[Rfam]
Nucleotides: 092
Base pairs, nucleotide, nucleotide: 002083003082004081005080006079007078016073017072018071020069021068022067024065025064026063027062028061029060030059032053034051035050036049038047039046040045
Number, partner (000 for none) and nucleotide at each position: 001000g002083u003082a004081u005080c006079u007078g008000u009000g010000c011000g012000u013000a014000g015000a016073u017072g018071g019000c020069g021068u022067u023000c024065a025064g026063c027062a028061c029060c030059a031000g032053g033000a034051a035050c036049a037000g038047a039046c040045g041000u042000g043000u044000u045040u046039g047038u048000g049036u050035g051034u052000g053032u054000g055000u056000g057000g058000a059030u060029g061028g062027u063026g064025u065024u066000c067022a068021g069020c070000a071018c072017c073016a074000g075000g076000g077000u078007c079006a080005g081004g082003u083002g084000u085000a086000u087000u088000u089000g090000u091000g092000u

About this RNA
A member of the RNA family "mir-2060 microRNA precursor family" from Branchiostoma belcheri, 92 nucleotides long. The base pairs follow the family's consensus structure, which was predicted with RNAalifold. It scores 78 bits against the family's covariance model. Its family is annotated with miRNA-mediated post-transcriptional gene silencing and RISC complex in the Gene Ontology. The family has 7 seed sequences and 3,696 matches in Rfam 15.1. The source organism's lineage runs through Eukaryota, Deuterostomia, Leptocardii, Amphioxiformes and Branchiostoma.